Overview
EGFOA RNA: a 115-nucleotide RNA from Veillonella seminalis. The sequence is in the family's curated seed alignment.
[Rfam]
RNA sequence: CUUUACCCAGAUAUUGUCCCGUCCUAGAUAUUCGGCAUGAGAGAGAAUGGUUUAUACCGCAACGUAAAGCUAGACCUGGGGUUGUUCGUCGCCUAAUAAGAUGAAAACUCUCUUU
Numbered sequence: 001c002u003u004u005a006c007c008c009a010g011a012u013a014u015u016g017u018c019c020c021g022u023c024c025u026a027g028a029u030a031u032u033c034g035g036c037a038u039g040a041g042a043g044a045g046a047a048u049g050g051u052u053u054a055u056a057c058c059g060c061a062a063c064g065u066a067a068a069g070c071u072a073g074a075c076c077u078g079g080g081g082u083u084g085u086u087c088g089u090c091g092c093c094u095a096a097u098a099a100g101a102u103g104a105a106a107a108c109u110c111u112c113u114u115u
Stems, first nucleotide, its partner, number of pairs: 006080005021075002024073004039114007049058003059085005
By type it is a small RNA.
The organism belongs to Veillonella seminalis, within Bacteria.